This 285-nucleotide RNA sequence from an uncultured Rhodocyclaceae bacterium belongs to the Rfam family "permuted transfer-messenger RNA".
RNA sequence: CGUUGUUAUUCCUGCAAAGUGGCGGCGUUUUGGACAGGGGUUCGAUUCCCCUCAUCUCCACCAAAAAAACGUUUCAACCCUUCGCCCGCAAUAUUAUUUUUGCCGAGUCUUCAAAAAUCUCUUCGGCAAAAAAAGCGGAAAAAAUGCAGAAAAGCGUUUUUUUGAUGGGGAUGCACUGGCUUCGACAGGGCGCAUAAAGCUGAGCCGGCAACGCGAAAGGCGAAGGACGUAAUCCUAGCAAAUUCAAUAAACGCCAACGACGAGCGUUACGCACUCGCCGCCUAG
Numbered sequence: 001c002g003u004u005g006u007u008a009u010u011c012c013u014g015c016a017a018a019g020u021g022g023c024g025g026c027g028u029u030u031u032g033g034a035c036a037g038g039g040g041u042u043c044g045a046u047u048c049c050c051c052u053c054a055u056c057u058c059c060a061c062c063a064a065a066a067a068a069a070c071g072u073u074u075c076a077a078c079c080c081u082u083c084g085c086c087c088g089c090a091a092u093a094u095u096a097u098u099u100u101u102g103c104c105g106a107g108u109c110u111u112c113a114a115a116a117a118u119c120u121c122u123u124c125g126g127c128a129a130a131a132a133a134a135g136c137g138g139a140a141a142a143a144a145u146g147c148a149g150a151a152a153a154g155c156g157u158u159u160u161u162u163u164g165a166u167g168g169g170g171a172u173g174c175a176c177u178g179g180c181u182u183c184g185a186c187a188g189g190g191c192g193c194a195u196a197a198a199g200c201u202g203a204g205c206c207g208g209c210a211a212c213g214c215g216a217a218a219g220g221c222g223a224a225g226g227a228c229g230u231a232a233u234c235c236u237a238g239c240a241a242a243u244u245c246a247a248u249a250a251a252c253g254c255c256a257a258c259g260a261c262g263a264g265c266g267u268u269a270c271g272c273a274c275u276c277g278c279c280g281c282c283u284a285g
Stems, first nucleotide, its partner, number of pairs: 001213005015202002026192003030188003036052005053173007214229002
From the family's description: Bacterial tmRNA, also known as 10Sa RNA or SsrA, is named for its dual tRNA and mRNA-like properties. It is annotated as a non-coding RNA gene.